[Rfam]
RNA sequence: UGCAGCCAUGUCAAAUUCAGUACUUGUCUUCUCCAUGGUGGGUACUGGCCCAGCCGGCUGCCACAGCAAGACCUGUAGUUCAUGGGCCCCAUGUCCCUCUCAUUGGACCCUGGGGAUAAAAACAUGCUACAGACACCC
Number, nucleotide and partner (000 for none) at each position: 001u000002g061003c060004a059005g058006c000007c000008a000009u000010g000011u000012c000013a000014a000015a000016u000017u000018c047019a046020g045021u044022a043023c042024u041025u040026g039027u038028c037029u000030u000031c000032u000033c000034c000035a000036u000037g028038g027039u026040g025041g024042g023043u022044a021045c020046u019047g018048g000049c000050c000051c000052a000053g000054c000055c000056g000057g000058c005059u004060g003061c002062c000063a000064c000065a000066g000067c000068a000069a000070g000071a000072c000073c000074u000075g130076u129077a128078g127079u126080u124081c000082a000083u000084g000085g000086g000087c115088c114089c113090c112091a111092u000093g000094u000095c000096c000097c000098u000099c000100u000101c000102a000103u000104u000105g000106g000107a000108c000109c000110c000111u091112g090113g089114g088115g087116a000117u000118a000119a000120a000121a000122a000123c000124a080125u000126g079127c078128u077129a076130c075131a000132g000133a000134c000135a000136c000137c000138c000
Shown here is a 138-nucleotide sequence from Chelonia mydas, a member of the family "Small nucleolar RNA SNORA5". About the family: ACA5 is a member of the H/ACA class of snoRNA that guide the sites of modification of uridines to pseudouridines. Taxonomically the source falls in Chelonia (Eukaryota, Metazoa, Chordata, Durocryptodira). The family is grouped with related families in Rfam's "SNORA5 clan". The base pairs follow the family's consensus structure, which was predicted with RNAfold.